[Rfam]
RNA sequence: UUGCUGUGAUGACUUCUUAGGACACCCUUGAUUUGACAAUGAAAUGCGUGUAAUUCUGAGCAAU
Numbered sequence: 001u002u003g004c005u006g007u008g009a010u011g012a013c014u015u016c017u018u019a020g021g022a023c024a025c026c027c028u029u030g031a032u033u034u035g036a037c038a039a040u041g042a043a044a045u046g047c048g049u050g051u052a053a054u055u056c057u058g059a060g061c062a063a064u
Stems, first nucleotide, its partner, number of pairs: 001063004
RNA: Small nucleolar RNA SNORD58